Rfam assigns this 509-nucleotide part of an RNA from Allobosea sp. AAP35 to the family "Bacterial small subunit ribosomal RNA". The match comes from Rfam's covariance-model search (1568 bits). Taxonomically the source falls in Allobosea (Bacteria, Pseudomonadati, Pseudomonadota, Alphaproteobacteria).
RNA sequence: CAAUCUGAGAGUUUGAUCCUGGCUCAGAGCGAACGCUGGCGGCAGGCUUAACACAUGCAAGUCGAACGGGCACUUCGGUGCUAGUGGCAGACGGGUGAGUAACACGUGGGAACGUACCUUUCGGUUCGGAAUAAUACAGGGAAACUUGUACUAAUACCGGAUACGCCCUUCGGGGGAAAGAUUUAUCGCCGAUAGAUCGGCCCGCGUCUGAUUAGCUAGUUGGUGAGGUAAUGGCUCACCAAGGCGACGAUCAGUAGCUGGUCUGAGAGGAUGAUCAGCCACACUGGGACUGAGACACGGCCCAGACUCCUACGGGAGGCAGCAGUGGGGAAUAUUGGACAAUGGGCGAAAGCCUGAUCCAGCCAUGCCGCGUGUGUGAUGAAGGCCUUAGGGUUGUAAAGCACUUUUGUCCGGGAAGAUAAUGACUGUACCGGAAGAAUAAGCCCCGGCUAACUUCGUGCCAGCAGCCGCGGUAAUACGAAGGGGGCUAGCGUUGCUCGGAAUCACUG
Numbered sequence: 001c002a003a004u005c006u007g008a009g010a011g012u013u014u015g016a017u018c019c020u021g022g023c024u025c026a027g028a029g030c031g032a033a034c035g036c037u038g039g040c041g042g043c044a045g046g047c048u049u050a051a052c053a054c055a056u057g058c059a060a061g062u063c064g065a066a067c068g069g070g071c072a073c074u075u076c077g078g079u080g081c082u083a084g085u086g087g088c089a090g091a092c093g094g095g096u097g098a099g100u101a102a103c104a105c106g107u108g109g110g111a112a113c114g115u116a117c118c119u120u121u122c123g124g125u126u127c128g129g130a131a132u133a134a135u136a137c138a139g140g141g142a143a144a145c146u147u148g149u150a151c152u153a154a155u156a157c158c159g160g161a162u163a164c165g166c167c168c169u170u171c172g173g174g175g176g177a178a179a180g181a182u183u184u185a186u187c188g189c190c191g192a193u194a195g196a197u198c199g200g201c202c203c204g205c206g207u208c209u210g211a212u213u214a215g216c217u218a219g220u221u222g223g224u225g226a227g228g229u230a231a232u233g234g235c236u237c238a239c240c241a242a243g244g245c246g247a248c249g250a251u252c253a254g255u256a257g258c259u260g261g262u263c264u265g266a267g268a269g270g271a272u273g274a275u276c277a278g279c280c281a282c283a284c285u286g287g288g289a290c291u292g293a294g295a296c297a298c299g300g301c302c303c304a305g306a307c308u309c310c311u312a313c314g315g316g317a318g319g320c321a322g323c324a325g326u327g328g329g330g331a332a333u334a335u336u337g338g339a340c341a342a343u344g345g346g347c348g349a350a351a352g353c354c355u356g357a358u359c360c361a362g363c364c365a366u367g368c369c370g371c372g373u374g375u376g377u378g379a380u381g382a383a384g385g386c387c388u389u390a391g392g393g394u395u396g397u398a399a400a401g402c403a404c405u406u407u408u409g410u411c412c413g414g415g416a417a418g419a420u421a422a423u424g425a426c427u428g429u430a431c432c433g434g435a436a437g438a439a440u441a442a443g444c445c446c447c448g449g450c451u452a453a454c455u456u457c458g459u460g461c462c463a464g465c466a467g468c469c470g471c472g473g474u475a476a477u478a479c480g481a482a483g484g485g486g487g488c489u490a491g492c493g494u495u496g497c498u499c500g501g502a503a504u505c506a507c508u509g
Stems, first nucleotide, its partner, number of pairs: 009025005027499004032495006039371006045364002047329001052327003056324003061088003066085002069082005095282003104207007113199002118195002121192004126160004135150006166175003180187002208254003215245003220242008257279004261272004284305005307318004335361001337360003343356005374404004384395004410435005418426001443488005454483005464471002